[Rfam]
RNA sequence: CUUGACUGUUUGAGGCCAUAGCAGAAGCACUUAUGGUGCAGCUGUGUCAGAGUCUAAUGAAUCUGCGAGUUCUGCU
Numbered sequence: 001c002u003u004g005a006c007u008g009u010u011u012g013a014g015g016c017c018a019u020a021g022c023a024g025a026a027g028c029a030c031u032u033a034u035g036g037u038g039c040a041g042c043u044g045u046g047u048c049a050g051a052g053u054c055u056a057a058u059g060a061a062u063c064u065g066c067g068a069g070u071u072c073u074g075c076u
Base pairs, nucleotide, nucleotide: 014043015042016041020076021075022074023073024072025071026070027039028038029037048065049064050063051062053060054059
Dot-bracket structure: .............[[[...((((((((((.......))).]]]....((((.((....)).))))....)))))))